RNA sequence: CCCCUGGGGCUGGUAAAAAGGAACCAGAUCGACUGGCAACUGGAUUUGGUCCCCUUCAACCAGCUGGAGUGG
Numbered sequence: 001c002c003c004c005u006g007g008g009g010c011u012g013g014u015a016a017a018a019a020g021g022a023a024c025c026a027g028a029u030c031g032a033c034u035g036g037c038a039a040c041u042g043g044a045u046u047u048g049g050u051c052c053c054c055u056u057c058a059a060c061c062a063g064c065u066g067g068a069g070u071g072g
Base pairs, nucleotide, nucleotide: 004069005068008065009064010063011062012061013060014059017056018055020052021051022050024049025048026047027046028045029044030043
Shown here is a 72-nucleotide RNA sequence from Varanus komodoensis, a member of the family "mir-133 microRNA precursor family". Rfam's curators write: mir-133 was first experimentally characterised in mouse and homologues have since been discovered in several other species. The mature sequence is excised from the 3' arm of the hairpin. A reference for the family is Lagos-Quintana et al. (2002), "Identification of tissue-specific microRNAs from mouse", Curr Biol. The organism belongs to Varanus, within Eukaryota.